[Rfam]
RNA sequence: UAGAUUUUCUACAAAGUCAAACUUUAUAAACUUUGACCAAGUUUAUAGAGAAAACUAUUUAUAUCUACAAUACCAAAUGUAUAUAAUAUGAAAGUAUGUGUUGUGAUGUAUCUAAGCACACGUAUUUGGUAUUCUAGAUGUAUAUAAUUUUCUCUACAAACUUGGUCAAAGUUUAUAAAGUUUGACUUCUAGAAAAAUCUA
Numbered sequence: 001u002a003g004a005u006u007u008u009c010u011a012c013a014a015a016g017u018c019a020a021a022c023u024u025u026a027u028a029a030a031c032u033u034u035g036a037c038c039a040a041g042u043u044u045a046u047a048g049a050g051a052a053a054a055c056u057a058u059u060u061a062u063a064u065c066u067a068c069a070a071u072a073c074c075a076a077a078u079g080u081a082u083a084u085a086a087u088a089u090g091a092a093a094g095u096a097u098g099u100g101u102u103g104u105g106a107u108g109u110a111u112c113u114a115a116g117c118a119c120a121c122g123u124a125u126u127u128g129g130u131a132u133u134c135u136a137g138a139u140g141u142a143u144a145u146a147a148u149u150u151u152c153u154c155u156a157c158a159a160a161c162u163u164g165g166u167c168a169a170a171g172u173u174u175a176u177a178a179a180g181u182u183u184g185a186c187u188u189c190u191a192g193a194a195a196a197a198u199c200u201a
Base pairs, nucleotide, nucleotide: 005196006195007194008193009192011190014188015187016186017185018184019183020182021181022180023179024178025177026176027175032170033169034168035167036166046156047155048154049153050152051151052150053149056146057145058144060142061141062140063139064138065137066136067135069133073129074128075127076126077125078124079123080122

MIR1435 microRNA precursor family: a 201-nucleotide RNA from Triticum turgidum. The organism belongs to Triticum turgidum, within Eukaryota.